The family of this 50-nucleotide RNA sequence from Devosia sp. LC5 is "Guanidine-II riboswitch aptamer (mini-ykkC)". The family's consensus secondary structure is taken from published work. A search with the family's covariance model found it, with a score of 41 bits. Rfam 15.1 lists 1,589 matches to the family in 1,229 species.
RNA sequence: CGACCGGGACGACCCGGUCAUGCCCUUGGGUCUUGUCCAGGACGACCUGG
Number, nucleotide and partner (000 for none) at each position: 001c000002g019003a018004c017005c016006g015007g014008g013009a000010c000011g000012a000013c008014c007015c006016g005017g004018u003019c002020a000021u000022g000023c000024c000025c000026u000027u000028g000029g000030g000031u000032c000033u000034u000035g000036u000037c050038c049039a048040g047041g046042a000043c000044g000045a000046c041047c040048u039049g038050g037